Shown here is a 318-nucleotide sequence from Pelotomaculum schinkii, a member of the family "c-di-AMP riboswitch aptamer (ydaO/yuaA leader)".
RNA sequence: ACUGAAUAAAGGCCGAAUCUCAAUAAAUUUGGGUACGGAGGAACCAAUUUCAGGGGUGAAUCCCAUUGAGUCGUGCGCCAAGACAUGAGAAAAAGGAAAUGAGACAUUAGACGAAAGUUGCGGAAAGCGGAAAUUCAAACAGCCAAUUAAGCGGGUGUUGGAGGGAAAAUGACAGGCGCUCCGCUGUCUGCGGCAAAUGUCCCAACGGCUGCAUUACCACCCGGCUUCCCAGAUCUCACGUCCCACCUCUCAAAGGGUAGGUUUAUUCUUUUUACCGAACCCGUCAGCUAACUCCGGAGGCACAAAGAAAGGGGAAAA
Numbered sequence: 001a002c003u004g005a006a007u008a009a010a011g012g013c014c015g016a017a018u019c020u021c022a023a024u025a026a027a028u029u030u031g032g033g034u035a036c037g038g039a040g041g042a043a044c045c046a047a048u049u050u051c052a053g054g055g056g057u058g059a060a061u062c063c064c065a066u067u068g069a070g071u072c073g074u075g076c077g078c079c080a081a082g083a084c085a086u087g088a089g090a091a092a093a094a095g096g097a098a099a100u101g102a103g104a105c106a107u108u109a110g111a112c113g114a115a116a117g118u119u120g121c122g123g124a125a126a127g128c129g130g131a132a133a134u135u136c137a138a139a140c141a142g143c144c145a146a147u148u149a150a151g152c153g154g155g156u157g158u159u160g161g162a163g164g165g166a167a168a169a170u171g172a173c174a175g176g177c178g179c180u181c182c183g184c185u186g187u188c189u190g191c192g193g194c195a196a197a198u199g200u201c202c203c204a205a206c207g208g209c210u211g212c213a214u215u216a217c218c219a220c221c222c223g224g225c226u227u228c229c230c231a232g233a234u235c236u237c238a239c240g241u242c243c244c245a246c247c248u249c250u251c252a253a254a255g256g257g258u259a260g261g262u263u264u265a266u267u268c269u270u271u272u273u274a275c276c277g278a279a280c281c282c283g284u285c286a287g288c289u290a291a292c293u294c295c296g297g298a299g300g301c302a303c304a305a306a307g308a309a310a311g312g313g314g315a316a317a318a
Stems, first nucleotide, its partner, number of pairs: 012301003019033004036296005045053001054282003062257003260276003
The match comes from Rfam's covariance-model search (71 bits).